[Rfam]
RNA sequence: AGCUGGGGUAGAGGCGCGGAAAACAUGAGUACCUCCGGGGAGGACCGGGGUCCGGUGAGACGGAGGGAAAGGGUUUGCCGCCGAAGUUCAGCCGCCGCCCGGGGCCGGCUGGGCUGGGCCGUCACCGAACAGGUGCCGGACUGUCAUCCGGGGGAAAGCCCGCCCCUGGAUGGAGCGCUAUCUCACCG
Numbered sequence: 001a002g003c004u005g006g007g008g009u010a011g012a013g014g015c016g017c018g019g020a021a022a023a024c025a026u027g028a029g030u031a032c033c034u035c036c037g038g039g040g041a042g043g044a045c046c047g048g049g050g051u052c053c054g055g056u057g058a059g060a061c062g063g064a065g066g067g068a069a070a071g072g073g074u075u076u077g078c079c080g081c082c083g084a085a086g087u088u089c090a091g092c093c094g095c096c097g098c099c100c101g102g103g104g105c106c107g108g109c110u111g112g113g114c115u116g117g118g119c120c121g122u123c124a125c126c127g128a129a130c131a132g133g134u135g136c137c138g139g140a141c142u143g144u145c146a147u148c149c150g151g152g153g154g155a156a157a158g159c160c161c162g163c164c165c166c167u168g169g170a171u172g173g174a175g176c177g178c179u180a181u182c183u184c185a186c187c188g
Base pairs, nucleotide, nucleotide: 006183007182008181009180010179011178016081017080018079019078021076022075023074024073032066033065034064035063036062037061085115086114087113088112089111090110091109092108093107094106096104116142117141119139120138121137123135124134125133126132144173145172146171147170148169149168150167151166152165153164154163
A member of the RNA family "Lysine riboswitch aptamer" from Desulfotomaculum copahuensis, 188 nucleotides long. The source organism's lineage runs through Bacteria, Bacillota, Eubacteriales, Desulfotomaculaceae and Desulfotomaculum.